[Rfam]
RNA sequence: UUGCUGGCAACGGCAGGGUCUGAAGGAAGCGAUAGGAAGUGAGCGGUACAUAGCGUAAGUGAACCUGAUUCGGCGUCAUAGGUGGGUAAGCGUGCACAAUAGCGUGAAGCCCGAUACCUGGUCAGACCUUUGGCGUGAUUGAGGAUGGGAUUGCUCACCGGGAGUUCGC
Numbered sequence: 001u002u003g004c005u006g007g008c009a010a011c012g013g014c015a016g017g018g019u020c021u022g023a024a025g026g027a028a029g030c031g032a033u034a035g036g037a038a039g040u041g042a043g044c045g046g047u048a049c050a051u052a053g054c055g056u057a058a059g060u061g062a063a064c065c066u067g068a069u070u071c072g073g074c075g076u077c078a079u080a081g082g083u084g085g086g087u088a089a090g091c092g093u094g095c096a097c098a099a100u101a102g103c104g105u106g107a108a109g110c111c112c113g114a115u116a117c118c119u120g121g122u123c124a125g126a127c128c129u130u131u132g133g134c135g136u137g138a139u140u141g142a143g144g145a146u147g148g149g150a151u152u153g154c155u156c157a158c159c160g161g162g163a164g165u166u167c168g169c
Stems, first nucleotide, its partner, number of pairs: 001016006029169004041156006047149001049147003064144003068140001073136003077132002080129004084112004090105004

Description:
Rfam assigns this 169-nucleotide sequence from Desulfolithobacter dissulfuricans to the family "Group II catalytic intron D1-D4-3". The base pairs follow the family's consensus structure.